[Rfam]
RNA: permuted transfer-messenger RNA
Organism: Stenotrophomonas tumulicola
RNA sequence: GGCUGUAUGAAGCAAUGAGGAGGCGUUACGGAAGCGGGUCCGAGUCCUGCCAGCUCCAUCGCCUGGGUAUUGGGGGGCCGAUGCCCAGGUGGAGGGGCUGUACUGGUUUCGACGUGGCGAGCAAUCGGCGUGGACAGCCCGGGAGGCGACCGACGUAACCGGCGCGACCACCAUAAUCGCCAACCAGGACGAUUAUCGCCAGGCCGCGUAUCGCAGCCUGG
Numbered sequence: 001g002g003c004u005g006u007a008u009g010a011a012g013c014a015a016u017g018a019g020g021a022g023g024c025g026u027u028a029c030g031g032a033a034g035c036g037g038g039u040c041c042g043a044g045u046c047c048u049g050c051c052a053g054c055u056c057c058a059u060c061g062c063c064u065g066g067g068u069a070u071u072g073g074g075g076g077g078c079c080g081a082u083g084c085c086c087a088g089g090u091g092g093a094g095g096g097g098c099u100g101u102a103c104u105g106g107u108u109u110c111g112a113c114g115u116g117g118c119g120a121g122c123a124a125u126c127g128g129c130g131u132g133g134a135c136a137g138c139c140c141g142g143g144a145g146g147c148g149a150c151c152g153a154c155g156u157a158a159c160c161g162g163c164g165c166g167a168c169c170a171c172c173a174u175a176a177u178c179g180c181c182a183a184c185c186a187g188g189a190c191g192a193u194u195a196u197c198g199c200c201a202g203g204c205c206g207c208g209u210a211u212c213g214c215a216g217c218c219u220g221g
Stems, first nucleotide, its partner, number of pairs: 001139005012129002024119003028115003034050005051100007140155002